[Rfam]
RNA sequence: GCGGUUCCGGUUCACGUCCCUGCGCGGGCGACCCGGCGACC
Numbered sequence: 001g002c003g004g005u006u007c008c009g010g011u012u013c014a015c016g017u018c019c020c021u022g023c024g025c026g027g028g029c030g031a032c033c034c035g036g037c038g039a040c041c
Stems, first nucleotide, its partner, number of pairs: 003041003007036004015030005

The record is a 41-nucleotide sequence from Spirilliplanes yamanashiensis, which matches "L31-Actinobacteria ribosomal protein leader" in Rfam. Pairs were carried over by alignment from the consensus structure, which is taken from published work. Clan: Ribosomal Protein L31 Leader clan. The organism belongs to Spirilliplanes, within Bacteria. The family's RNA type in Rfam is cis-regulatory leader.